[Rfam]
RNA sequence: GAUGUGAGUAGAAGCGGUCAGGAGGAACGCUCCGGGGCAUUGCUCAUGAG
Numbered sequence: 001g002a003u004g005u006g007a008g009u010a011g012a013a014g015c016g017g018u019c020a021g022g023a024g025g026a027a028c029g030c031u032c033c034g035g036g037g038c039a040u041u042g043c044u045c046a047u048g049a050g
Stems, first nucleotide, its partner, number of pairs: 005046006015035001018037002021033004
A member of the RNA family "Xanthine riboswitch aptamer (NMT1 RNA)" from Vibrio furnissii, 50 nucleotides long. For this family Rfam cites "Insights into xanthine riboswitch structure and metal ion-mediated ligand recognition" (Xu et al., Nucleic Acids Res, 2021). The family's consensus secondary structure is taken from published work. Lineage of the source: Bacteria > Pseudomonadota > Gammaproteobacteria > Vibrio > Vibrio furnissii. Rfam's curators put it in the seed alignment.